[Rfam]
RNA sequence: UAAAGGCGAUGAAGCGAAAGGUUGCUGACACACCCGGCCCCUUUGCCAUGGCAGGAUGUCAGGUUAAAUUUUCGCGGAGAAUGUCUAUUAUAAAAUGGGCGA
Numbered sequence: 001u002a003a004a005g006g007c008g009a010u011g012a013a014g015c016g017a018a019a020g021g022u023u024g025c026u027g028a029c030a031c032a033c034c035c036g037g038c039c040c041c042u043u044u045g046c047c048a049u050g051g052c053a054g055g056a057u058g059u060c061a062g063g064u065u066a067a068a069u070u071u072u073c074g075c076g077g078a079g080a081a082u083g084u085c086u087a088u089u090a091u092a093a094a095a096u097g098g099g100c101g102a
Base pairs, nucleotide, nucleotide: 014075015074016073018072019071020070021069025062026061027060028059029058082101083100084099085098